[Rfam]
RNA sequence: GAAGCACGCCAGACCGCCGCUGGUGCGCGCUUGAAAAGGCCGCACUGGAGGAAAGUCCGGACUGCACAGGGCAGCGCAGCAGCCAACGGCUGUCCACCGCGAGGUGAGGAUCAGAGCAACAGAGACGAGUCACCUUGGGUGCCGCGCCGGAGGUGAAAACCGAAGGCACGAGCAUCCAGGGUGAGUGCAACGGGCAAUCUCUGCGCGCAGCAACACCAAGUAGGCACACGUUGACGGGGCCCCCCGAGUGUGCGGGUAGGUGGCAUCGAGCCGGCGGGGCGACCCCCGGCCCAGAUUGAUGGCGGUCACAUGCGGGCGACCGCAUGCACAGAAUCCGGCUUAUCGGCGGGCUUCACAC
Number, nucleotide and partner (000 for none) at each position: 001g354002a353003a352004g351005c350006a000007c348008g347009c346010c345011a343012g307013a306014c305015c304016g303017c302018c301019g000020c048021u047022g046023g045024u044025g043026c042027g041028c000029g000030c000031u000032u000033g000034a000035a000036a000037a000038g000039g000040c000041c027042g026043c025044a024045c023046u022047g021048g020049a000050g000051g000052a000053a341054a340055g339056u000057c338058c337059g336060g335061a334062c210063u209064g208065c207066a000067c000068a000069g241070g240071g000072c000073a000074g206075c205076g204077c203078a202079g093080c092081a091082g090083c089084c000085a000086a000087c000088g000089g083090c082091u081092g080093u079094c108095c106096a105097c104098c103099g000100c000101g000102a000103g098104g097105u096106g095107a000108g094109g201110a200111u000112c000113a000114g199115a198116g195117c194118a000119a000120c000121a000122g000123a000124g000125a000126c000127g000128a000129g000130u184131c183132a182133c181134c180135u179136u178137g177138g176139g175140u174141g173142c172143c000144g000145c000146g000147c000148c000149g000150g000151a000152g000153g000154u000155g000156a000157a000158a000159a000160c000161c000162g000163a000164a000165g000166g000167c000168a000169c000170g000171a000172g142173c141174a140175u139176c138177c137178a136179g135180g134181g133182u132183g131184a130185g000186u000187g000188c000189a000190a000191c000192g000193g000194g117195c116196a000197a000198u115199c114200u110201c109202u078203g077204c076205g075206c074207g065208c064209a063210g062211c000212a000213a000214c262215a261216c260217c259218a000219a000220g000221u000222a000223g000224g253225c252226a251227c250228a249229c248230g000231u000232u000233g000234a000235c246236g245237g244238g243239g000240c070241c069242c000243c238244c237245c236246g235247a000248g229249u228250g227251u226252g225253c224254g000255g000256g000257u000258a000259g217260g216261u215262g214263g000264c000265a000266u000267c000268g000269a000270g290271c289272c288273g287274g286275c000276g285277g284278g283279g000280c000281g000282a000283c278284c277285c276286c274287c273288g272289g271290c270291c000292c000293a000294g000295a000296u000297u000298g000299a000300u000301g018302g017303c016304g015305g014306u013307c012308a000309c000310a000311u000312g000313c000314g000315g000316g000317c000318g000319a000320c000321c000322g000323c000324a000325u000326g000327c000328a000329c000330a000331g000332a000333a000334u061335c060336c059337g058338g057339c055340u054341u053342a000343u011344c000345g010346g009347c008348g007349g000350g005351c004352u003353u002354c001355a000356c000357a000358c000
RNA: Bacterial RNase P class A
Organism: Comamonas flocculans